freshwater-2 RNA: a 90-nucleotide RNA sequence.
Nucleotides: 090
Stems, first nucleotide, its partner, number of pairs: 001018006024043007044058004
Number, partner (000 for none) and nucleotide at each position: 001018a002017g003016c004015a005014a006013c007000a008000c009000u010000a011000a012000g013006g014005u015004u016003g017002u018001u019000g020000g021000a022000c023000u024043u025042a026041u027040g028039c029038g030037g031000u032000a033000c034000c035000c036000u037030c038029c039028g040027c041026g042025u043024a044058g045057c046056a047055a048000c049000u050000a051000g052000a053000a054000c055047u056046u057045g058044c059000a060000u061000u062000g063000g064000g065000c066000u067000c068000u069000u070000u071000g072000a073000u074000a075000a076000g077000g078000a079000g080000a081000a082000a083000a084000c085000a086000a087000a088000a089000u090000g
About this RNA: Rfam classes the family as a cis-regulatory element.